[Rfam]
This 223-nucleotide RNA from Chelativorans petroleitrophicus belongs to the Rfam family "permuted transfer-messenger RNA". A search with the family's covariance model found it, with a score of 142 bits. Taxonomically the source falls in Chelativorans (Bacteria, Alphaproteobacteria, Hyphomicrobiales, Phyllobacteriaceae).

RNA sequence: GGCGAUAAACGGCCGAUGCAAUAAGCCAAUCGGACCCGGGGGCAGUGCCCGGCGCCUCCACCAGAAACUGCCGGCCAGCCAGGAGGGGCGGCUUCUGAUGGGGGCGAAACAGGAUCGACGAUGGUGUAAAGAUCGGACCUUCGCCCGGCAUGGUACCACCGUUAUCGGACCGAACCUAAUAGUUGCCAACGACAACUAUGCGGAAGCCCGUCUCGCUGCGUAA
Numbered sequence: 001g002g003c004g005a006u007a008a009a010c011g012g013c014c015g016a017u018g019c020a021a022u023a024a025g026c027c028a029a030u031c032g033g034a035c036c037c038g039g040g041g042g043c044a045g046u047g048c049c050c051g052g053c054g055c056c057u058c059c060a061c062c063a064g065a066a067a068c069u070g071c072c073g074g075c076c077a078g079c080c081a082g083g084a085g086g087g088g089c090g091g092c093u094u095c096u097g098a099u100g101g102g103g104g105c106g107a108a109a110c111a112g113g114a115u116c117g118a119c120g121a122u123g124g125u126g127u128a129a130a131g132a133u134c135g136g137a138c139c140u141u142c143g144c145c146c147g148g149c150a151u152g153g154u155a156c157c158a159c160c161g162u163u164a165u166c167g168g169a170c171c172g173a174a175c176c177u178a179a180u181a182g183u184u185g186c187c188a189a190c191g192a193c194a195a196c197u198a199u200g201c202g203g204a205a206g207c208c209c210g211u212c213u214c215g216c217u218g219c220g221u222a223a
Stems, first nucleotide, its partner, number of pairs: 001145005014135004026124003030121003036052005053106007146161003